[Rfam]
The record is a 102-nucleotide sequence from Peribacillus saganii, which matches "SAM riboswitch aptamer (S box leader)" in Rfam. Rfam links the family to the GO term regulation of gene expression. For this family Rfam cites "An mRNA structure that controls gene expression by binding S-adenosylmethionine" (Winkler et al., Nat Struct Biol, 2003). The source organism's lineage runs through Bacteria, Bacilli, Caryophanales, Bacillaceae and Peribacillus.
RNA sequence: UAGCUAUCAAGAAAGGCGGAGGGACUGGCCCGACGAAGCCCGGCAACCGGUAUGUAGUACACGGUGCUAAUUCCAGCAGAGUAUAACUCUGAAAGAUAGGGA
Numbered sequence: 001u002a003g004c005u006a007u008c009a010a011g012a013a014a015g016g017c018g019g020a021g022g023g024a025c026u027g028g029c030c031c032g033a034c035g036a037a038g039c040c041c042g043g044c045a046a047c048c049g050g051u052a053u054g055u056a057g058u059a060c061a062c063g064g065u066g067c068u069a070a071u072u073c074c075a076g077c078a079g080a081g082u083a084u085a086a087c088u089c090u091g092a093a094a095g096a097u098a099g100g101g102a
Stems, first nucleotide, its partner, number of pairs: 001102001004099005015040003021031003025076004042068004047064002049060001072094001077091006